[Rfam]
RNA sequence: CAUUGAUGUGAUGAUAUCGUUUUCGGAAGUUAUUUACAAUGUCGACUCAAAACACCAUACUACAAUUAUCUGAUCAAUG
Numbered sequence: 001c002a003u004u005g006a007u008g009u010g011a012u013g014a015u016a017u018c019g020u021u022u023u024c025g026g027a028a029g030u031u032a033u034u035u036a037c038a039a040u041g042u043c044g045a046c047u048c049a050a051a052a053c054a055c056c057a058u059a060c061u062a063c064a065a066u067u068a069u070c071u072g073a074u075c076a077a078u079g
Stems, first nucleotide, its partner, number of pairs: 001079006
RNA: Small nucleolar RNA Z155